[Rfam]
RNA sequence: AUUCCAUAUAAAGCGCCUGGACUGCCAGAGAGAGCAGUUGACGAGGAGGAGGUUUAUCGAGCAUUCGGCGGAUGCCUCCCGGUUGCAUGUCACAACCGAUAAAGAAUUACUAAAACCAGCGAGGCGACUCGCUGAACAAUCGUUUUUCUUAUGACAUUC
Dot-bracket structure: ...................((((((........))))))........(((((....((((....))))......)))))((((((.......))))))....((((..(.......(((((((....)))))))........)..))))..........